[Rfam]
RNA sequence: CUGAUGGGCGCGUCCGGGUCAAUUGCGGCUUGCAACACCCGAUCUCCCUUGUGGUGGCGGAUGGCGAUCCGCCGGCAAAGGGAGAACGCGUGACCGUCAG
Numbered sequence: 001c002u003g004a005u006g007g008g009c010g011c012g013u014c015c016g017g018g019u020c021a022a023u024u025g026c027g028g029c030u031u032g033c034a035a036c037a038c039c040c041g042a043u044c045u046c047c048c049u050u051g052u053g054g055u056g057g058c059g060g061a062u063g064g065c066g067a068u069c070c071g072c073c074g075g076c077a078a079a080g081g082g083a084g085a086a087c088g089c090g091u092g093a094c095c096g097u098c099a100g
Stems, first nucleotide, its partner, number of pairs: 001100005008091006015041004023035005043085008
Dot-bracket structure: (((((..((((((.((((....(((((...)))))..)))).((((((((...........................))))))))))))))....)))))

The family of this 100-nucleotide RNA sequence is "L4-Archaeoglobi ribosomal protein leades". The family's consensus secondary structure is taken from published work. By type it is a cis-regulatory leader. The sequence is in the family's curated seed alignment.